Rfam assigns this 70-nucleotide RNA from Trypanosoma vivax to the family "Trypanosomatid snoRNA TB11Cs2H1". The literature on the family includes a 2005 paper in RNA by Liang et al., "A genome-wide analysis of C/D and H/ACA-like small nucleolar RNAs in Trypanosoma brucei reveals a trypanosome-specific pattern of rRNA modification". Its family is annotated with nucleolus and RNA processing in the Gene Ontology.
[Rfam]
RNA sequence: AAAGCUCUUUAUGUAGUGCGCGUGCCACAAAACCAGCAGGCAGUGUGCACGAAACUGGAGAGCCAGAUAC
Numbered sequence: 001a002a003a004g005c006u007c008u009u010u011a012u013g014u015a016g017u018g019c020g021c022g023u024g025c026c027a028c029a030a031a032a033c034c035a036g037c038a039g040g041c042a043g044u045g046u047g048c049a050c051g052a053a054a055c056u057g058g059a060g061a062g063c064c065a066g067a068u069a070c
Stems, first nucleotide, its partner, number of pairs: 004063006016050007023042004